[Rfam]
RNA sequence: UUUGAUAUGAAUUGAUUUAUGCUUGGAUACACUAAUGUAUAAGUCAUUCUUAUGAGUUGAUAAUGUUUGGAUGG
Numbered sequence: 001u002u003u004g005a006u007a008u009g010a011a012u013u014g015a016u017u018u019a020u021g022c023u024u025g026g027a028u029a030c031a032c033u034a035a036u037g038u039a040u041a042a043g044u045c046a047u048u049c050u051u052a053u054g055a056g057u058u059g060a061u062a063a064u065g066u067u068u069g070g071a072u073g074g
Stems, first nucleotide, its partner, number of pairs: 011061008021053001025049004031044003

The family of this 74-nucleotide RNA sequence from Medicago truncatula is "MIR5272 microRNA precursor family". The family's consensus secondary structure was predicted with RNAalifold.